Rfam assigns this 94-nucleotide RNA from Paenibacillus sp. UNCCL117 to the family "c-di-GMP-I riboswitch aptamer". The family's consensus secondary structure is taken from published work. The source organism's lineage runs through Bacteria, Bacillati, Bacillota, Caryophanales and Paenibacillus. Rfam describes the family as follows. GEMM was predicted in a large-scale screen for bacterial structured RNA regulatory elements. It scores 70 bits against the family's covariance model.
RNA sequence: UUUCUUUUCUGGCAAACCUGUCGAAAGGCAGGGACGCAAAGCUUAGGGUCUAAGGCUCUCCUUCAAGGACGGCUAUGGCAGCCUGGCCGCCGAA
Numbered sequence: 001u002u003u004c005u006u007u008u009c010u011g012g013c014a015a016a017c018c019u020g021u022c023g024a025a026a027g028g029c030a031g032g033g034a035c036g037c038a039a040a041g042c043u044u045a046g047g048g049u050c051u052a053a054g055g056c057u058c059u060c061c062u063u064c065a066a067g068g069a070c071g072g073c074u075a076u077g078g079c080a081g082c083c084u085g086g087c088c089g090c091c092g093a094a
Stems, first nucleotide, its partner, number of pairs: 012037002017032006041087003045084003048079003055073003